[Rfam]
RNA: sraA
RNA sequence: UGUUUUUUGAGUAUAUGGGGACAGAUAACUGACAUUCAAUGACAGUAAUGCGAGAAAAACAAAAGGGGAAACACUUUUCCCCUUUUUAGUUAACU
Dot-bracket structure: .......(.(((...(.((.........)).).))).).......................(((((((.((.....)).))))))).........
Numbered sequence: 001u002g003u004u005u006u007u008u009g010a011g012u013a014u015a016u017g018g019g020g021a022c023a024g025a026u027a028a029c030u031g032a033c034a035u036u037c038a039a040u041g042a043c044a045g046u047a048a049u050g051c052g053a054g055a056a057a058a059a060c061a062a063a064a065g066g067g068g069a070a071a072c073a074c075u076u077u078u079c080c081c082c083u084u085u086u087u088a089g090u091u092a093a094c095u
Stems, first nucleotide, its partner, number of pairs: 008038001010036003016032001018030002062086007070078002